The family of this 104-nucleotide sequence from Bacillus sp. MRMR6 is "SAM riboswitch aptamer (S box leader)". A search with the family's covariance model found it, with a score of 80 bits.

[Rfam]
RNA sequence: AGCUUAUCCAGAGAGACUGAGGGACUGGCCCGAGGACGUCCAGCAACCAUCAUUUAAAGAAAGGUGCUAAUUCCUGCAGGGUGUUUCAUUCUGAAAGAUACGGU
Numbered sequence: 001a002g003c004u005u006a007u008c009c010a011g012a013g014a015g016a017c018u019g020a021g022g023g024a025c026u027g028g029c030c031c032g033a034g035g036a037c038g039u040c041c042a043g044c045a046a047c048c049a050u051c052a053u054u055u056a057a058a059g060a061a062a063g064g065u066g067c068u069a070a071u072u073c074c075u076g077c078a079g080g081g082u083g084u085u086u087c088a089u090u091c092u093g094a095a096a097g098a099u100a101c102g103g104u
Base pairs, nucleotide, nucleotide: 001104003102005100006099007098008097013041015040016039017038021031022030023029025076027074028073042068043067044066045065047064048063050060051059072096077093078092079091080090081089082088